[Rfam]
RNA sequence: GACCGACAUCAGAGAUUCGUUCUGCGAGCCCUGGCCUACCGCCAGGUAGGAGUGCAUUCCCAGCUCGCGCAUCUGCUGCUCGCCGAUCACCCGGGUGGUGAUGUUCUCGCUGUUGGAGUCCGCCAGCUGACGCGCCUGCGAGGCGAGGUAGCCUGCGUUACAGAUAUUCGGCGGCAUGUUGCUGAGAUCUUUUGC
Numbered sequence: 001g002a003c004c005g006a007c008a009u010c011a012g013a014g015a016u017u018c019g020u021u022c023u024g025c026g027a028g029c030c031c032u033g034g035c036c037u038a039c040c041g042c043c044a045g046g047u048a049g050g051a052g053u054g055c056a057u058u059c060c061c062a063g064c065u066c067g068c069g070c071a072u073c074u075g076c077u078g079c080u081c082g083c084c085g086a087u088c089a090c091c092c093g094g095g096u097g098g099u100g101a102u103g104u105u106c107u108c109g110c111u112g113u114u115g116g117a118g119u120c121c122g123c124c125a126g127c128u129g130a131c132g133c134g135c136c137u138g139c140g141a142g143g144c145g146a147g148g149u150a151g152c153c154u155g156c157g158u159u160a161c162a163g164a165u166a167u168u169c170g171g172c173g174g175c176a177u178g179u180u181g182c183u184g185a186g187a188u189c190u191u192u193u194g195c
Stems, first nucleotide, its partner, number of pairs: 005189002012032001014030001016028005033043003050059002062077003078135002081132002084129002087126001092122005099112002102109002136163003140159002143156003167186006
Shown here is a 195-nucleotide RNA from Pseudescherichia vulneris, a member of the family "Yersinia sRNA 276". Rfam classes the family as an antisense RNA. The family's consensus secondary structure was predicted with RNAfold. NCBI's taxonomy places the organism under Bacteria, Pseudomonadati, Gammaproteobacteria, Pseudescherichia, Pseudescherichia vulneris.